[Rfam]
RNA sequence: AUAACGAAGAGUUUGAUCCUGGCUUAGAACUAACGCUGGCAGUGCGUCUUAAGCAUGCAAGUCAAACGGGAUGUAGCAAUACAUUCAGUGGCGAACGGGUGAGUAACGCGUGGAUGAUCUACCUAUGAGAUGGGGAUAACUAUUAGAAAUAGUAGCUAAUACCGAAUAAGGUCAAUUAAUUUGUUAAUUGAUGAAAGGAAGCCUUUAAAGCUUCGCUUGUAGAUGAGUCUGCGUCUUAUUAGCUAGUUGGUAGGGUAAAUGCCUACCAAGGCAAUGAUAAGUAACCGGCCUGAGAGGGUGAACGGUCACACUGGAACUGAGAUACGGUCCAGACUCCUACGGGAGGCAGCAGCUAAGAAUCUUCCGCAAUGGGCGAAAGCCUGACGGAGCGACACUGCGUGAAUGAAGAAGGUCGAAAGAUUGUAAAAUUCUUUUAUAAAUGAGGAAUAAGCUUUGUAGGAAAUGACAAAGUGAUGACGUUAAUUUAUGAAUAAGCCCCGGCUAAUUACGUGCCAGCAGCCGCGGUAAUACGUAAGGGGCGAGCGUUGUUCGGGAUUAUUG
Numbered sequence: 001a002u003a004a005c006g007a008a009g010a011g012u013u014u015g016a017u018c019c020u021g022g023c024u025u026a027g028a029a030c031u032a033a034c035g036c037u038g039g040c041a042g043u044g045c046g047u048c049u050u051a052a053g054c055a056u057g058c059a060a061g062u063c064a065a066a067c068g069g070g071a072u073g074u075a076g077c078a079a080u081a082c083a084u085u086c087a088g089u090g091g092c093g094a095a096c097g098g099g100u101g102a103g104u105a106a107c108g109c110g111u112g113g114a115u116g117a118u119c120u121a122c123c124u125a126u127g128a129g130a131u132g133g134g135g136a137u138a139a140c141u142a143u144u145a146g147a148a149a150u151a152g153u154a155g156c157u158a159a160u161a162c163c164g165a166a167u168a169a170g171g172u173c174a175a176u177u178a179a180u181u182u183g184u185u186a187a188u189u190g191a192u193g194a195a196a197g198g199a200a201g202c203c204u205u206u207a208a209a210g211c212u213u214c215g216c217u218u219g220u221a222g223a224u225g226a227g228u229c230u231g232c233g234u235c236u237u238a239u240u241a242g243c244u245a246g247u248u249g250g251u252a253g254g255g256u257a258a259a260u261g262c263c264u265a266c267c268a269a270g271g272c273a274a275u276g277a278u279a280a281g282u283a284a285c286c287g288g289c290c291u292g293a294g295a296g297g298g299u300g301a302a303c304g305g306u307c308a309c310a311c312u313g314g315a316a317c318u319g320a321g322a323u324a325c326g327g328u329c330c331a332g333a334c335u336c337c338u339a340c341g342g343g344a345g346g347c348a349g350c351a352g353c354u355a356a357g358a359a360u361c362u363u364c365c366g367c368a369a370u371g372g373g374c375g376a377a378a379g380c381c382u383g384a385c386g387g388a389g390c391g392a393c394a395c396u397g398c399g400u401g402a403a404u405g406a407a408g409a410a411g412g413u414c415g416a417a418a419g420a421u422u423g424u425a426a427a428a429u430u431c432u433u434u435u436a437u438a439a440a441u442g443a444g445g446a447a448u449a450a451g452c453u454u455u456g457u458a459g460g461a462a463a464u465g466a467c468a469a470a471g472u473g474a475u476g477a478c479g480u481u482a483a484u485u486u487a488u489g490a491a492u493a494a495g496c497c498c499c500g501g502c503u504a505a506u507u508a509c510g511u512g513c514c515a516g517c518a519g520c521c522g523c524g525g526u527a528a529u530a531c532g533u534a535a536g537g538g539g540c541g542a543g544c545g546u547u548g549u550u551c552g553g554g555a556u557u558a559u560u561g
Stems, first nucleotide, its partner, number of pairs: 009025005027551004032547006039398006045391002047356001052354003056351003061092003066089002069086007099309003108234008118226002123222007131165001133163002140155006171192009197214003235281003242272003247269008284306004288299004311332005334345004362388001364387003370383005401431004411422004436488006445478001451472006495540005506535005516523002
Description:
This 561-nucleotide part of an RNA from Borreliella burgdorferi belongs to the Rfam family "Bacterial small subunit ribosomal RNA". Rfam 15.1 lists 42,628 matches to the family in 10,626 species. Lineage of the source: Bacteria > Pseudomonadati > Spirochaetia > Spirochaetales > Borreliella burgdorferi. For this family Rfam cites "The comparative RNA web (CRW) site: an online database of comparative sequence and structure information for ribosomal, intron, and other RNAs" (Cannone et al., BMC Bioinformatics, 2002).